Shown here is an 80-nucleotide RNA sequence from Scyliorhinus torazame, a member of the family "mir-19 microRNA precursor family". Its family is annotated with miRNA-mediated post-transcriptional gene silencing and RISC complex in the Gene Ontology. The family is grouped with related families in Rfam's "mir-19 clan". The base pairs follow the family's consensus structure, which was predicted with RNAalifold. The match comes from Rfam's covariance-model search (85 bits). On this family, see Lagos-Quintana et al., Science 2001: "Identification of novel genes coding for small expressed RNAs".

RNA sequence: UUCUCUAGUUAGUUUUGCAGGUUUGCAUCCAGCUGUUAAUACAUAUUGCUGUGCAAAUCCAUGCAAAACUGACUAUAGAA
Numbered sequence: 001u002u003c004u005c006u007a008g009u010u011a012g013u014u015u016u017g018c019a020g021g022u023u024u025g026c027a028u029c030c031a032g033c034u035g036u037u038a039a040u041a042c043a044u045a046u047u048g049c050u051g052u053g054c055a056a057a058u059c060c061a062u063g064c065a066a067a068a069c070u071g072a073c074u075a076u077a078g079a080a
Base pairs, nucleotide, nucleotide: 003078004077006075007074008073009072010071011070012069013068014067015066016065017064018063019062020060021059022057023056024055025054026053027052028051031050032049033048